[Rfam]
Annotation
The record is a 157-nucleotide RNA from Acinetobacter gyllenbergii, which matches "Pseudomonadales-1 RNA" in Rfam. The base pairs follow the family's consensus structure, which is taken from published work. It is one of the family's seed sequences. The family's RNA type in Rfam is small RNA.
Nucleotides: 157
Base pairs, nucleotide, nucleotide: 002023003022004021005020006019007018008017012061013060014059015058026108027107028106029105030104049070053066054065055064056063057062080135081134082133086126087125088124089123091121093120095118096117097116098115099114100113101112138157139156140155141154142153143152144151
Number, partner (000 for none) and nucleotide at each position: 001000c002023c003022u004021a005020c006019u007018g008017g009000a010000g011000u012061g013060c014059c015058g016000a017008c018007c019006a020005g021004u022003a023002g024000a025000g026108c027107a028106u029105g030104c031000c032000u033000u034000c035000g036000a037000g038000u039000a040000a041000a042000a043000c044000c045000a046000c047000a048000a049070a050000g051000c052000a053066g054065g055064g056063u057062u058015u059014g060013g061012c062057a063056a064055c065054c066053c067000g068000a069000c070049u071000a072000a073000a074000a075000g076000a077000g078000g079000a080135u081134u082133g083000a084000a085000a086126g087125c088124a089123a090000g091121u092000g093120a094000a095118g096117c097116a098115g099114a100113c101112c102000g103000c104030g105029c106028a107027u108026g109000u110000u111000a112101g113100g114099u115098u116097u117096g118095u119000g120093u121091g122000a123089u124088u125087g126086u127000g128000a129000g130000u131000a132000g133082c134081g135080g136000u137000g138157g139156a140155c141154u142153a143152g144151u145000u146000g147000c148000c149000g150000a151144g152143c153142u154141g155140g156139u157138u

Taxonomically the source falls in Acinetobacter gyllenbergii (Bacteria, Moraxellales, Moraxellaceae, Acinetobacter).